[Rfam]
Record summary: The record is a 319-nucleotide RNA sequence from Poecile atricapillus, which matches "7SK RNA" in Rfam. Rfam's curators write: 7SK was discovered as an abundant small nuclear RNA in the mid-70s but a possible function has only recently been suggested. Two independent studies have found that 7SK RNA binds the CDK9/cyclin T complex (known as elongation factor P-TEFb). P-TEFb activates transcription by phosphorylating the C-terminal domain of RNA polymerase II. This process is negatively regulated by the 7SK RNP. The secondary structure of 7SK RNA shown here was proposed by Wasserman and Steitz on the basis of chemical modification and enzymatic cleavage experiments. This family contains a number of annotated pseudogenes and 7SK derived repeats. Rfam 15.1 lists 49,373 matches to the family in 668 species. The match comes from Rfam's covariance-model search (127 bits). The literature on the family includes a 2002 paper in Curr Biol by Blencowe, "Transcription: surprising role for an elusive small nuclear RNA".
RNA sequence: GGAUAUGAGGGUGAUUUGGCUGUGGGAUCUGAUAUGCCAUGGAUUGCAUGGUCUGACUGAUCUGGCUAGCUUAGGCAGGUGUUCCCUUUCUUCCUUGACAUUCCAUGUGUGUUCUUCCUCAUGUUGUGUGCUUGGACACUGAGGACAGCCUCCCCAGUAAUAUUGCUCACUGGUCAAGGGUGUGUGGUAGCUGUGUUCCCGUGCUAGAAGCGCUAAGUAAGCUCGAUGUCCAUUUGCAGAUGAAUGUAGGGUGGUCAACAUCCAAUACUGAAGACACAUCCAAAAGAGAAGCUGCACACAGCAGUCUGCCAGCGGCUUU
Numbered sequence: 001g002g003a004u005a006u007g008a009g010g011g012u013g014a015u016u017u018g019g020c021u022g023u024g025g026g027a028u029c030u031g032a033u034a035u036g037c038c039a040u041g042g043a044u045u046g047c048a049u050g051g052u053c054u055g056a057c058u059g060a061u062c063u064g065g066c067u068a069g070c071u072u073a074g075g076c077a078g079g080u081g082u083u084c085c086c087u088u089u090c091u092u093c094c095u096u097g098a099c100a101u102u103c104c105a106u107g108u109g110u111g112u113u114c115u116u117c118c119u120c121a122u123g124u125u126g127u128g129u130g131c132u133u134g135g136a137c138a139c140u141g142a143g144g145a146c147a148g149c150c151u152c153c154c155c156a157g158u159a160a161u162a163u164u165g166c167u168c169a170c171u172g173g174u175c176a177a178g179g180g181u182g183u184g185u186g187g188u189a190g191c192u193g194u195g196u197u198c199c200c201g202u203g204c205u206a207g208a209a210g211c212g213c214u215a216a217g218u219a220a221g222c223u224c225g226a227u228g229u230c231c232a233u234u235u236g237c238a239g240a241u242g243a244a245u246g247u248a249g250g251g252u253g254g255u256c257a258a259c260a261u262c263c264a265a266u267a268c269u270g271a272a273g274a275c276a277c278a279u280c281c282a283a284a285a286g287a288g289a290a291g292c293u294g295c296a297c298a299c300a301g302c303a304g305u306c307u308g309c310c311a312g313c314g315g316c317u318u319u
Base pairs, nucleotide, nucleotide: 001104002103003102006097007096008095009094010093011092013089014088018086019085024083025082027080028079029078030077031076033074035069037065038064039063042062043061044060045059046057047055113160118135119134121132123131124130136158137157143154144153190259192257196254197253199251200250202248203247204246211242212241214239217237218236219235220234221233282319283318284317288310291305292304293303294302295301